[Rfam]
RNA: Group II catalytic intron D1-D4-3
RNA sequence: UCCACUGCGAGGUGGAAUCUGAAAGAAACUGGCGGCAAACAUCUGACCUUACGUACAGAAACUUCAUAUAAGGCAUUUGACCAUGGAUGAGAUUGCUAAACAAAUCAAAGUCCUAUAGCUAUUCGGAAUGGUUGGUGUAAAUGAAGUGGGUAUAAGAUGGAAAGAAUAAGCC
Number, nucleotide and partner (000 for none) at each position: 001u016002c015003c014004a013005c012006u011007g000008c000009g000010a000011g006012g005013u004014g003015g002016a001017a000018u000019c000020u000021g000022a000023a000024a000025g000026a000027a000028a000029c000030u170031g000032g000033c000034g000035g000036c164037a000038a000039a000040c159041a158042u157043c156044u155045g000046a151047c150048c149049u148050u000051a000052c000053g000054u000055a000056c000057a000058g000059a000060a000061a000062c146063u145064u144065c143066a142067u141068a000069u000070a000071a000072g000073g138074c137075a136076u000077u134078u000079g133080a132081c131082c130083a129084u128085g113086g112087a111088u110089g000090a000091g106092a105093u104094u103095g000096c000097u000098a000099a000100a000101c000102a000103a094104a093105u092106c091107a000108a000109a000110g088111u087112c086113c085114u000115a000116u000117a000118g000119c000120u000121a000122u000123u000124c000125g000126g000127a000128a084129u083130g082131g081132u080133u079134g077135g000136u075137g074138u073139a000140a000141a067142u066143g065144a064145a063146g062147u000148g049149g048150g047151u046152a000153u000154a000155a044156g043157a042158u041159g040160g000161a000162a000163a000164g036165a000166a000167u000168a000169a000170g030171c000172c000